[Rfam]
RNA: mir-130 microRNA precursor family
RNA sequence: CCCAAGCCCGGGCUCUUUCCACUGAGCUACAGUGCUUAUGUGCAAAGGACUGUUCUAAGCACUGGGGGUUACAAGGUGAUCAGGUUGGAGAAGCAGCGUGGCUCAGUGGAAAGAGCAUGGGCUUUGGA
Dot-bracket structure: .((.((((((.((((((((..(((((((((...................................................................)))))))))..)))))))).))))))..)).